[Rfam]
RNA sequence: CAGGACAAGGGCAAACCCGUCGCGAGGCGGGGACGCAAAGCCCAGGGACCUCACGUCGUGAGGUGGCCCGGCUACCCAGG
Dot-bracket structure: (.((......((...((((((....))))))..[))..((((..((((((...........))).])))))))..))..)
Shown here is an 80-nucleotide RNA sequence from Kineococcus aurantiacus, a member of the family "c-di-GMP-I-GGC riboswitch aptamer".
A search with the family's covariance model found it, with a score of 63 bits.
The base pairs follow the family's consensus structure, which is taken from published work.